The record is a 133-nucleotide sequence from Alligator sinensis, which matches "Small nucleolar RNA SNORA3/SNORA45 family" in Rfam. Rfam's curators write: The members of this family belong to the H/ACA class of snoRNAs which are thought to guide the sites of modification of uridines to pseudouridines. This family includes mouse snoMBI-28 and human homologues ACA3 (SNORA3) and ACA3-2 (SNORA45). Both ACA3 and ACA3-2 share the same host gene. Rfam classes the family as an H/ACA-box small nucleolar RNA. For this family Rfam cites "A novel experimental approach for systematic identification of box H/ACA snoRNAs from eukaryotes" (Gu et al., Nucleic Acids Res, 2005).

[Rfam]
RNA sequence: GCUGAGGCUAGAGUCGCAUCUAGAUGCUACCUGUGGUCAUGGUGUGCUAGCGUACGUGGAGAAUAAUGACUGACCUUUAUUCACUGUCUGUUCUUGAUCAGUAGUUCAGUCAGUCACCGGGUUAGUAACAGCC
Numbered sequence: 001g002c003u004g005a006g007g008c009u010a011g012a013g014u015c016g017c018a019u020c021u022a023g024a025u026g027c028u029a030c031c032u033g034u035g036g037u038c039a040u041g042g043u044g045u046g047c048u049a050g051c052g053u054a055c056g057u058g059g060a061g062a063a064u065a066a067u068g069a070c071u072g073a074c075c076u077u078u079a080u081u082c083a084c085u086g087u088c089u090g091u092u093c094u095u096g097a098u099c100a101g102u103a104g105u106u107c108a109g110u111c112a113g114u115c116a117c118c119g120g121g122u123u124a125g126u127a128a129c130a131g132c133c
Stems, first nucleotide, its partner, number of pairs: 002059003006055001007053002012048002015046006023038003070125007083114004089108002093104002